[Rfam]
RNA sequence: GUUUAGCCCCGAUUGAAGCGGCAUCCUUUUUUGAGUUUCGAAAAAAAGAUAUAGCGGAAAGCGGGAAAUAGC
Numbered sequence: 001g002u003u004u005a006g007c008c009c010c011g012a013u014u015g016a017a018g019c020g021g022c023a024u025c026c027u028u029u030u031u032u033g034a035g036u037u038u039c040g041a042a043a044a045a046a047a048g049a050u051a052u053a054g055c056g057g058a059a060a061g062c063g064g065g066a067a068a069u070a071g072c
Stems, first nucleotide, its partner, number of pairs: 009064003013060002018055002023050003029045004
RNA: Flavo-1 RNA